[Rfam]
RNA sequence: UAAAAAAAGGGAGUGCAGAGGGGGAACCCCUCGCCGAUGGAGGAGGGUGCUCAGCUCGCGCAGCGAGCGCCGAAGGGAAC
Numbered sequence: 001u002a003a004a005a006a007a008a009g010g011g012a013g014u015g016c017a018g019a020g021g022g023g024g025a026a027c028c029c030c031u032c033g034c035c036g037a038u039g040g041a042g043g044a045g046g047g048u049g050c051u052c053a054g055c056u057c058g059c060g061c062a063g064c065g066a067g068c069g070c071c072g073a074a075g076g077g078a079a080c
Stems, first nucleotide, its partner, number of pairs: 015034002018032006054068005
RNA: Clostridiales-2 RNA